RNA: TPP riboswitch aptamer (THI element)
Organism: Aquabacter sp. L1I39
RNA sequence: GACAUCUCGUCGGGGUGUCCCACAUGAUGUGGGGCUGAGAGGCAGGCGCCAACCCGCGAACCUGAUCCGGAUCAUGCCGGCGAAGGGAAGCGAGAGCGGGCCGGCG
Numbered sequence: 001g002a003c004a005u006c007u008c009g010u011c012g013g014g015g016u017g018u019c020c021c022a023c024a025u026g027a028u029g030u031g032g033g034g035c036u037g038a039g040a041g042g043c044a045g046g047c048g049c050c051a052a053c054c055c056g057c058g059a060a061c062c063u064g065a066u067c068c069g070g071a072u073c074a075u076g077c078c079g080g081c082g083a084a085g086g087g088a089a090g091c092g093a094g095a096g097c098g099g100g101c102c103g104g105c106g
Stems, first nucleotide, its partner, number of pairs: 006094005011056004017035007042049002061086003067080004